[Rfam]
RNA sequence: CUCCGCGAAAUCUAUUUAGGUAGAGCGUCGGAUGAACACCGUGCGGGGUAGAGCACUGAAUGGGCUAGGGGGACUUACCGUCUUACCAAACCCAAUCAAACUCCGAAUACGCACGAGUGCUGUCCGGCAGACACACGGCGGGUGCUAACGUCCGUCGUGAAGAGGGCAACAACCCUGACCUCCAGCUAAGGUCCCGAAGUCACGGCUAAGUGUGAAAGGAUGUGAAGAUCCCAAAACAACCAGGAUGUUGGCUUAGAAGCAGCCAUCAUUUAAAGAAAGCGUAACAGCUCACUGGUCUAAACAAGGGUCUUUGCGCCGAAAAUGUAACGGGGCUGAAGCCGUGCACCGAAGCUGAGGAUUCGUGUCUUGCGACACGAGUGGUAGCGGAGCGUUCCGUAGGCCUGUGAAGGGGUACCCGUGAGGGACCCUGGAGGUAUCGGAAGCGAGAAU
Numbered sequence: 001c002u003c004c005g006c007g008a009a010a011u012c013u014a015u016u017u018a019g020g021u022a023g024a025g026c027g028u029c030g031g032a033u034g035a036a037c038a039c040c041g042u043g044c045g046g047g048g049u050a051g052a053g054c055a056c057u058g059a060a061u062g063g064g065c066u067a068g069g070g071g072g073a074c075u076u077a078c079c080g081u082c083u084u085a086c087c088a089a090a091c092c093c094a095a096u097c098a099a100a101c102u103c104c105g106a107a108u109a110c111g112c113a114c115g116a117g118u119g120c121u122g123u124c125c126g127g128c129a130g131a132c133a134c135a136c137g138g139c140g141g142g143u144g145c146u147a148a149c150g151u152c153c154g155u156c157g158u159g160a161a162g163a164g165g166g167c168a169a170c171a172a173c174c175c176u177g178a179c180c181u182c183c184a185g186c187u188a189a190g191g192u193c194c195c196g197a198a199g200u201c202a203c204g205g206c207u208a209a210g211u212g213u214g215a216a217a218g219g220a221u222g223u224g225a226a227g228a229u230c231c232c233a234a235a236a237c238a239a240c241c242a243g244g245a246u247g248u249u250g251g252c253u254u255a256g257a258a259g260c261a262g263c264c265a266u267c268a269u270u271u272a273a274a275g276a277a278a279g280c281g282u283a284a285c286a287g288c289u290c291a292c293u294g295g296u297c298u299a300a301a302c303a304a305g306g307g308u309c310u311u312u313g314c315g316c317c318g319a320a321a322a323u324g325u326a327a328c329g330g331g332g333c334u335g336a337a338g339c340c341g342u343g344c345a346c347c348g349a350a351g352c353u354g355a356g357g358a359u360u361c362g363u364g365u366c367u368u369g370c371g372a373c374a375c376g377a378g379u380g381g382u383a384g385c386g387g388a389g390c391g392u393u394c395c396g397u398a399g400g401c402c403u404g405u406g407a408a409g410g411g412g413u414a415c416c417c418g419u420g421a422g423g424g425a426c427c428c429u430g431g432a433g434g435u436a437u438c439g440g441a442a443g444c445g446a447g448a449a450u
Base pairs, nucleotide, nucleotide: 001389002388003387004386005385006384011024012023013022014021015020026130027128028127029126030125031124032123033122036121040115041114042113043112044111045110051104052102053101057098058097059096061094062093063092064091068087069086070084071083072082073081074080134159135158136157137156138155139154140153141152142151143150164175165174166173179357180356181355182354184353185352186351190347191346192345199344201343202342203341204340205339206338218317219316222314223313224312225311226310227309228308229307230306231305239296240295241294242293243292245269246268247267250264251263252262270274275290279288280287358379359378360377361376362375363374364373365372390445392442393441394440395439396438400435401434402433409429410428411427412426413425415424416423417422
RNA: Bacterial large subunit ribosomal RNA, nucleotides 1010 to 1459